[Rfam]
RNA sequence: UUUCAGGCCCUGAUUGUCCAAACGCAAUUCUUGUUUGCAAUUUUAUCAAGGACUGUGUGUGGACAUCAUCGCUUGAGA
Numbered sequence: 001u002u003u004c005a006g007g008c009c010c011u012g013a014u015u016g017u018c019c020a021a022a023c024g025c026a027a028u029u030c031u032u033g034u035u036u037g038c039a040a041u042u043u044u045a046u047c048a049a050g051g052a053c054u055g056u057g058u059g060u061g062g063a064c065a066u067c068a069u070c071g072c073u074u075g076a077g078a
Base pairs, nucleotide, nucleotide: 002077003076004075005074006073007072011068012067013066014065016064017063018062019061020060023057024056025055026054028052029051030050031049032048033047
mir-219 microRNA precursor family: a 78-nucleotide RNA sequence from Tribolium castaneum. Taxonomically the source falls in Tribolium (Eukaryota, Allotriocarida, Neoptera, Cucujiformia). It is one of the family's seed sequences. Its family is annotated with miRNA-mediated post-transcriptional gene silencing and RISC complex in the Gene Ontology. The family has 92 seed sequences and 1,318 matches in Rfam 15.1.